[Rfam]
RNA sequence: GAGGGUGCUGAAGGCCUGUUUCCUAGGCUACAGACGAAGGACUUGUUCCUUAUUCGUGCCUAGGGGAAAGUCUCCGGACCCUUUGGCAGAGAGUGCCGCGUGCGCGUGCACGUUGACUUUCCCUGCUUGGCACUGUAACGUCCGCCGAGAAGGAUCCCGUGUGCUGCGGGGGAGCUGAGCGGCGUGCUGCGGGGCAGUCGUCCGUCAGCAUUUCUAGUUACGCAGGCAGUGCGCGUGCCUGUGCGCACGAACCACACGGGGCUCGUUCUCAUCGCGGCU
Dot-bracket structure: .((.(((.(((..((((((..(((((((........(((((.....)))))......)))))))....[[.[[[[.........((((.....))))((((((....)))))).(((...((((((...((((........((((.................(((.......)))...)))).)))).))))))..)))......................)))))).((((((........)))))).........]]]]]].....))).)))..))
Numbered sequence: 001g002a003g004g005g006u007g008c009u010g011a012a013g014g015c016c017u018g019u020u021u022c023c024u025a026g027g028c029u030a031c032a033g034a035c036g037a038a039g040g041a042c043u044u045g046u047u048c049c050u051u052a053u054u055c056g057u058g059c060c061u062a063g064g065g066g067a068a069a070g071u072c073u074c075c076g077g078a079c080c081c082u083u084u085g086g087c088a089g090a091g092a093g094u095g096c097c098g099c100g101u102g103c104g105c106g107u108g109c110a111c112g113u114u115g116a117c118u119u120u121c122c123c124u125g126c127u128u129g130g131c132a133c134u135g136u137a138a139c140g141u142c143c144g145c146c147g148a149g150a151a152g153g154a155u156c157c158c159g160u161g162u163g164c165u166g167c168g169g170g171g172g173a174g175c176u177g178a179g180c181g182g183c184g185u186g187c188u189g190c191g192g193g194g195c196a197g198u199c200g201u202c203c204g205u206c207a208g209c210a211u212u213u214c215u216a217g218u219u220a221c222g223c224a225g226g227c228a229g230u231g232c233g234c235g236u237g238c239c240u241g242u243g244c245g246c247a248c249g250a251a252c253c254a255c256a257c258g259g260g261g262c263u264c265g266u267u268c269u270c271a272u273c274g275c276g277g278c279u
Stems, first nucleotide, its partner, number of pairs: 002279002005275003009271003014227006022064007037051005069263002072261004085097004098113006115199003121194006130187004142182004163175003229248006
The record is a 279-nucleotide RNA from Enhydra lutris, which matches "RNase MRP" in Rfam. The match comes from Rfam's covariance-model search (186 bits). Rfam links the family to the GO terms ribonuclease MRP complex, ribonuclease MRP activity and rRNA processing. Pairs were carried over by alignment from the consensus structure, which is taken from published work. Taxonomically the source falls in Enhydra lutris (Eukaryota, Opisthokonta, Teleostomi, Dipnotetrapodomorpha). Rfam describes the family as follows. RNase MRP is an enzymatically active ribonucleoprotein with two distinct roles in eukaryotes. In mitochondria it plays a direct role in the initiation of mitochondrial DNA replication. In the nucleus it is involved in precursor rRNA processing, where it cleaves the internal transcribed spacer 1 between 18S and 5.8S rRNAs. Despite distinct functions, RNase MRP has been shown to be evolutionarily related to RNase P. Like eukaryotic RNase P, RNase MRP is not catalytically active without associated protein subunits.